[Rfam]
RNA sequence: UGGCUAAAUUAUUGUAUUCGACUGUAUUUACGGCGUGAAACAGGGGAUUACACUGUUUUUAAAUGGGAAGUAAAUCAAUUAAUAUAAUAAACUCCU
Dot-bracket structure: .((.....(((((((.((.((.((.((((((..((((((((((.........)))))))...)))....)))))))).)))).)))))))...)).
Shown here is a 96-nucleotide RNA sequence from Nicotiana sylvestris, a member of the family "MIR6152 microRNA precursor family". It scores 97 bits against the family's covariance model. The organism belongs to Nicotiana, within Eukaryota. The family's consensus secondary structure was predicted with RNAalifold.